[Rfam]
RNA sequence: CAGCAUCCUCUGAUAGACCACGAGCGAUUUCCCAGUGGCUCUCUGGUUUGCACUGAGAUGCGAAAAGAACUUCCUUGUGCUUUCUGCCUGCCUGGCCGUGGCAGCUCAGAUUGAAUUGGGGAACACAGGA
Numbered sequence: 001c002a003g004c005a006u007c008c009u010c011u012g013a014u015a016g017a018c019c020a021c022g023a024g025c026g027a028u029u030u031c032c033c034a035g036u037g038g039c040u041c042u043c044u045g046g047u048u049u050g051c052a053c054u055g056a057g058a059u060g061c062g063a064a065a066a067g068a069a070c071u072u073c074c075u076u077g078u079g080c081u082u083u084c085u086g087c088c089u090g091c092c093u094g095g096c097c098g099u100g101g102c103a104g105c106u107c108a109g110a111u112u113g114a115a116u117u118g119g120g121g122a123a124c125a126c127a128g129g130a
Stems, first nucleotide, its partner, number of pairs: 003061005011052002014050006022041004027036002072122006080113001083110004088104005

Overview
The record is a 130-nucleotide sequence from Aythya fuligula, which matches "Small nucleolar RNA SNORA31" in Rfam. Pairs were carried over by alignment from the consensus structure, which was predicted with RNAalifold. Rfam links the family to the GO terms RNA processing and nucleolus. About the family: ACA31 (SNORA31) belongs to the H/ACA class of snoRNAs which are thought to guide the sites of modification of uridines to pseudouridines. A reference for the family is Huttenhofer et al. (2001), "RNomics: an experimental approach that identifies 201 candidates for novel, small, non-messenger RNAs in mouse", EMBO J.